[Rfam]
RNA sequence: UAGGCAGUAUCCGAAAAGCCAGAACAGAGUAGGAC
Numbered sequence: 001u002a003g004g005c006a007g008u009a010u011c012c013g014a015a016a017a018g019c020c021a022g023a024a025c026a027g028a029g030u031a032g033g034a035c
Base pairs, nucleotide, nucleotide: 003020004019005018010034011033012032
This 35-nucleotide RNA belongs to the Rfam family "DUF805b RNA".
The base pairs follow the family's consensus structure, which is taken from published work.